[Rfam]
sok antitoxin (CssrC): a 149-nucleotide RNA from Winslowiella iniecta. The organism belongs to Winslowiella, within Bacteria. The match comes from Rfam's covariance-model search (103 bits). Also identified in Shigella as CssrC.

RNA sequence: GGGUGCCUGAAGCUGUUUGCUGCAGGCAUUAUUCAGGAGCAGACAGAAGAAGGCCCCAGGUCAAUUUUCAUUAACCUGAGGCCACUCCUGCACAUCCAACAAUGUCAGGAUAGCCUCUUAACAGCAGAUUUGCAAUGUAGGUUAAGAUG
Numbered sequence: 001g002g003g004u005g006c007c008u009g010a011a012g013c014u015g016u017u018u019g020c021u022g023c024a025g026g027c028a029u030u031a032u033u034c035a036g037g038a039g040c041a042g043a044c045a046g047a048a049g050a051a052g053g054c055c056c057c058a059g060g061u062c063a064a065u066u067u068u069c070a071u072u073a074a075c076c077u078g079a080g081g082c083c084a085c086u087c088c089u090g091c092a093c094a095u096c097c098a099a100c101a102a103u104g105u106c107a108g109g110a111u112a113g114c115c116u117c118u119u120a121a122c123a124g125c126a127g128a129u130u131u132g133c134a135a136u137g138u139a140g141g142u143u144a145a146g147a148u149g
Base pairs, nucleotide, nucleotide: 001057002056003055005054006053007052008051013046014045015044016043017042018041019040020039021038023036026033058077059076060075061074063072064071065070078117079116080115081114082113086110087109088108089107092105093104094103122140125137126136